[Rfam]
RNA sequence: GACCAUGAAAACAGUUCUUAUCGUCGUGGGAUCGCGCAUGGGCAGGGUGUUGUAAGCACCCGGCGAAAGCUCCCAUGCGCGAAACACAGGCUCCUUCGGGGGCCUUUUUUAUUACCAGCA
Numbered sequence: 001g002a003c004c005a006u007g008a009a010a011a012c013a014g015u016u017c018u019u020a021u022c023g024u025c026g027u028g029g030g031a032u033c034g035c036g037c038a039u040g041g042g043c044a045g046g047g048u049g050u051u052g053u054a055a056g057c058a059c060c061c062g063g064c065g066a067a068a069g070c071u072c073c074c075a076u077g078c079g080c081g082a083a084a085c086a087c088a089g090g091c092u093c094c095u096u097c098g099g100g101g102g103c104c105u106u107u108u109u110u111a112u113u114a115c116c117a118g119c120a
Stems, first nucleotide, its partner, number of pairs: 030116001032114001033081010045061006063070002086106001088105007
RNA: Rhizobiales sRNA Atu_C8
Organism: Phyllobacterium sp. YR620